Shown here is a 48-nucleotide RNA from Pacificitalea manganoxidans, a member of the family "SAM/SAH riboswitch aptamer". It scores 57 bits against the family's covariance model. The source organism's lineage runs through Bacteria, Pseudomonadati, Alphaproteobacteria, Rhodobacterales and Pacificitalea. Pairs were carried over by alignment from the consensus structure, which is taken from published work.

[Rfam]
RNA sequence: CCACCGUCACAACGGCUUCCUGGCGUGGCGGGUCGAUCCAACGGAGCA
Dot-bracket structure: ...(((((((..(([[[.[[))..)))))))...........]]]]].